This 89-nucleotide RNA from Hydatigera taeniaeformis belongs to the Rfam family "tRNA".
RNA sequence: GGGUGUGUGGCGUAAUGGAUAACGCGUCUGACUUCGGAUCAGAAGAUUCCGGGAUCAGAAGAUUCCGGGUUCGAAUCCCGGUGCACCCC
Numbered sequence: 001g002g003g004u005g006u007g008u009g010g011c012g013u014a015a016u017g018g019a020u021a022a023c024g025c026g027u028c029u030g031a032c033u034u035c036g037g038a039u040c041a042g043a044a045g046a047u048u049c050c051g052g053g054a055u056c057a058g059a060a061g062a063u064u065c066c067g068g069g070u071u072c073g074a075a076u077c078c079c080g081g082u083g084c085a086c087c088c089c
Stems, first nucleotide, its partner, number of pairs: 001088007010025004027043005065081005
It scores 58 bits against the family's covariance model. Pairs were carried over by alignment from the consensus structure, which is taken from published work. For this family Rfam cites "tRNAscan-SE: a program for improved detection of transfer RNA genes in genomic sequence" (Lowe and Eddy, Nucleic Acids Res, 1997). The source organism's lineage runs through Eukaryota, Eumetazoa, Protostomia, Cyclophyllidea and Hydatigera. It is annotated as a transfer RNA.